[Rfam]
RNA: eL15-Euryarchaeota ribosomal protein leader
Organism: Methanobacterium formicicum
RNA sequence: UGGGACCCCUAAUGAUCCCAUGGAUGUGGCGAAAGCUGAACAAAAAG
Numbered sequence: 001u002g003g004g005a006c007c008c009c010u011a012a013u014g015a016u017c018c019c020a021u022g023g024a025u026g027u028g029g030c031g032a033a034a035g036c037u038g039a040a041c042a043a044a045a046a047g
Stems, first nucleotide, its partner, number of pairs: 001020005021043001023041001028037003